[Rfam]
RNA sequence: UGAGGCGGUCAGGUAAUCGCGUAUGUCCUGUGCAAACAGGAAUGUACGAGGAAAGUCCGGGCUCCAUAGGACAGGACGCCGGGUAACGCCCGGAAGCGGUGACGCUAUAGAUAGCGCAACAGAAAACAUACCGCCAGCAAUGGUAAGGGUGAAAAGGUAGGGUAAGAGCCUACCGCGGUAUCAGCAAUGAUACUGGCAGUGCAAGCCUCGUCCGGAGCAAAGUCAAACAGUAGGCGAGUGGUCCGCUCAUGCCUACGGGUAGAUUGCUUGAAGGCUUUGGUAACAAAGUCGGUAGAUAGAUGAUUACCAUAAACAGAACCCGGCUUAUGACCGUCCUCUUUUU
Numbered sequence: 001u002g003a004g005g006c007g008g009u010c011a012g013g014u015a016a017u018c019g020c021g022u023a024u025g026u027c028c029u030g031u032g033c034a035a036a037c038a039g040g041a042a043u044g045u046a047c048g049a050g051g052a053a054a055g056u057c058c059g060g061g062c063u064c065c066a067u068a069g070g071a072c073a074g075g076a077c078g079c080c081g082g083g084u085a086a087c088g089c090c091c092g093g094a095a096g097c098g099g100u101g102a103c104g105c106u107a108u109a110g111a112u113a114g115c116g117c118a119a120c121a122g123a124a125a126a127c128a129u130a131c132c133g134c135c136a137g138c139a140a141u142g143g144u145a146a147g148g149g150u151g152a153a154a155a156g157g158u159a160g161g162g163u164a165a166g167a168g169c170c171u172a173c174c175g176c177g178g179u180a181u182c183a184g185c186a187a188u189g190a191u192a193c194u195g196g197c198a199g200u201g202c203a204a205g206c207c208u209c210g211u212c213c214g215g216a217g218c219a220a221a222g223u224c225a226a227a228c229a230g231u232a233g234g235c236g237a238g239u240g241g242u243c244c245g246c247u248c249a250u251g252c253c254u255a256c257g258g259g260u261a262g263a264u265u266g267c268u269u270g271a272a273g274g275c276u277u278u279g280g281u282a283a284c285a286a287a288g289u290c291g292g293u294a295g296a297u298a299g300a301u302g303a304u305u306a307c308c309a310u311a312a313a314c315a316g317a318a319c320c321c322g323g324c325u326u327a328u329g330a331c332c333g334u335c336c337u338c339u340u341u342u343u
Base pairs, nucleotide, nucleotide: 002338003337004336005335006333007332008331009330010329011328012308013307014306015305016304017303018302020048021047022046023045024044025043026042028040053326054325055324057323058322059321060320061319062217063216064215065214069244070243071242072241074213075212076211077210078209079093080092081091082090083089094108095106096105097104098103109208110207114206115205116202117201118200131148132147133144134143135142136141156174157173158172159171160170161169175197176195177194178193179192180191181190182189183188221265222264223263224262230256231255232254233253234252235251237247238246239245273290274289275288276287277286278285279284